[Rfam]
RNA sequence: AUAAUGAUACUUCAAUAGUUUAAGCCGGCUCGUCUGGAAUAAGAGGCGGAGGUGAGAUUCCUAUGU
Number, nucleotide and partner (000 for none) at each position: 001a000002u000003a000004a000005u000006g000007a000008u000009a000010c000011u000012u063013c024014a021015a000016u000017a000018g000019u000020u000021u014022a000023a000024g013025c049026c048027g047028g000029c045030u044031c043032g000033u000034c000035u000036g000037g000038a000039a000040u000041a000042a000043g031044a030045g029046g000047c027048g026049g025050a062051g061052g060053u000054g000055a000056g000057a000058u000059u000060c052061c051062u050063a012064u000065g000066u000

This 66-nucleotide RNA sequence belongs to the Rfam family "pemK RNA". The base pairs follow the family's consensus structure, which is taken from published work.